small nucleolar RNA snoR134: a 157-nucleotide RNA from Dioscorea zingiberensis.
The family has 5 seed sequences and 792 matches in Rfam 15.1.
The match comes from Rfam's covariance-model search (98 bits).
On this family, see Chen and Wu, Nucleic Acids Res 2009: "Mining small RNA sequencing data: a new approach to identify small nucleolar RNAs in Arabidopsis".
The organism belongs to Dioscorea, within Eukaryota.
Rfam classes the family as an H/ACA-box small nucleolar RNA.
[Rfam]
RNA sequence: AUGCACGGUGCUACCCCGGGCUUCUCUGAUUCAAUCUUGUGAUGAUGGAAGCCCCAAUGCCUGUGCAACAUCGGUUCGCCACACAGUGUUGCAGGUCCGAUUUGCGUGUCUUUAUUGAUGCGAGUGAUCGAUCUGUGUCAAAUUUGUGGCUAAAUUU
Dot-bracket structure: ..((((((.((......(((((((((.................)).)).)))))....))))))))...........((((((...((.((((((((................................)))))))).))....)))))).......